[Rfam]
RNA sequence: UCUUCCGAGGAGCGUUGCAGCCGGUCCGCCGUGGGCGUCCGGUCAGGCUCGGAAGGCGUCCGGCACCCAGCCGCGGCGCCCAGGUCAACGGCGCUCACCCAUG
Numbered sequence: 001u002c003u004u005c006c007g008a009g010g011a012g013c014g015u016u017g018c019a020g021c022c023g024g025u026c027c028g029c030c031g032u033g034g035g036c037g038u039c040c041g042g043u044c045a046g047g048c049u050c051g052g053a054a055g056g057c058g059u060c061c062g063g064c065a066c067c068c069a070g071c072c073g074c075g076g077c078g079c080c081c082a083g084g085u086c087a088a089c090g091g092c093g094c095u096c097a098c099c100c101a102u103g
Stems, first nucleotide, its partner, number of pairs: 002055007021042004026037001

Record summary
The family of this 103-nucleotide sequence from Oryzomicrobium terrae is "SAH (S-adenosyl-L-homocysteine) riboswitch aptamer". The source organism's lineage runs through Bacteria, Pseudomonadati, Betaproteobacteria, Rhodocyclaceae and Oryzomicrobium. The match comes from Rfam's covariance-model search (60 bits).